[Rfam]
The record is a 96-nucleotide sequence from Pyrococcus abyssi, which matches "SscA RNA" in Rfam. Rfam's curators put it in the seed alignment. Rfam classes the family as a non-coding RNA gene. Rfam's curators write: The SscA ncRNA gene was identified computationally in AT-rich hyperthermophiles using QRNA. SscA stands for Secondary Structure Conserved A. SscA is 97 nucleotides in length and is of unknown function. A reference for the family is Klein et al. (2002), "Noncoding RNA genes identified in AT-rich hyperthermophiles", Proc Natl Acad Sci U S A. NCBI's taxonomy places the organism under Archaea, Methanobacteriati, Methanobacteriota, Thermococcales, Pyrococcus abyssi.
RNA sequence: CGAGCAAAUGAGGCUUCCUCCUCUGUGGCGGGUUUCCCGCCGGAGGGAGCCGAUGUCCGAAAAUUUUAAAAGGCUAUCCCAAAAGUAGGGUUAGGC
Numbered sequence: 001c002g003a004g005c006a007a008a009u010g011a012g013g014c015u016u017c018c019u020c021c022u023c024u025g026u027g028g029c030g031g032g033u034u035u036c037c038c039g040c041c042g043g044a045g046g047g048a049g050c051c052g053a054u055g056u057c058c059g060a061a062a063a064u065u066u067u068a069a070a071a072g073g074c075u076a077u078c079c080c081a082a083a084a085g086u087a088g089g090g091u092u093a094g095g096c
Stems, first nucleotide, its partner, number of pairs: 004057001012051010027041006